[Rfam]
RNA sequence: AUAAAUAAAUCGCUGAAUUCUUGUAAAAGAAGCGGGGGAACCAAUUUUUGGGGUGAAUCCUUUUUAGGACGGGCAAAACCCUUAGCCCGAACCCGUCAGCUAACCUCGUAAGCGUGGAGGGGGGAUAGA
Numbered sequence: 001a002u003a004a005a006u007a008a009a010u011c012g013c014u015g016a017a018u019u020c021u022u023g024u025a026a027a028a029g030a031a032g033c034g035g036g037g038g039a040a041c042c043a044a045u046u047u048u049u050g051g052g053g054u055g056a057a058u059c060c061u062u063u064u065u066a067g068g069a070c071g072g073g074c075a076a077a078a079c080c081c082u083u084a085g086c087c088c089g090a091a092c093c094c095g096u097c098a099g100c101u102a103a104c105c106u107c108g109u110a111a112g113c114g115u116g117g118a119g120g121g122g123g124g125a126u127a128g129a
Stems, first nucleotide, its partner, number of pairs: 011114004018031005032109006042050002051094003059068003071088004

c-di-AMP riboswitch aptamer (ydaO/yuaA leader): a 129-nucleotide RNA from Tepidimicrobium xylanilyticum. The match comes from Rfam's covariance-model search (111 bits). The organism belongs to Tepidimicrobium, within Bacteria.